Shown here is a 79-nucleotide RNA from Cutaneotrichosporon oleaginosum, a member of the family "tRNA". The family's RNA type in Rfam is transfer RNA.

[Rfam]
RNA sequence: AUCGCUAUAGCUUAGUGGAAGAGCGCGGGGCUCAUAUCAUGACACCCCGAGGUCGGUUGAUCGAGACAACCUGGCGAUA
Numbered sequence: 001a002u003c004g005c006u007a008u009a010g011c012u013u014a015g016u017g018g019a020a021g022a023g024c025g026c027g028g029g030g031c032u033c034a035u036a037u038c039a040u041g042a043c044a045c046c047c048c049g050a051g052g053u054c055g056g057u058u059g060a061u062c063g064a065g066a067c068a069a070c071c072u073g074g075c076g077a078u079a
Stems, first nucleotide, its partner, number of pairs: 001078007010024004026049005055071005